[Rfam]
RNA: mir-275 microRNA precursor family
Organism: Zophobas morio
RNA sequence: CUGCCUGUUGCUACGCGUGUUACCUCAGUACCUAGGCUUGGGGUUUUCGGAGUCAGGUACCUGAAGUAGCGCGCGCAGCGGUGGUGC
Numbered sequence: 001c002u003g004c005c006u007g008u009u010g011c012u013a014c015g016c017g018u019g020u021u022a023c024c025u026c027a028g029u030a031c032c033u034a035g036g037c038u039u040g041g042g043g044u045u046u047u048c049g050g051a052g053u054c055a056g057g058u059a060c061c062u063g064a065a066g067u068a069g070c071g072c073g074c075g076c077a078g079c080g081g082u083g084g085u086g087c
Base pairs, nucleotide, nucleotide: 009080010079011078012077014075016073017072018071019070020069021068022067030058031057032056035054036053037052038051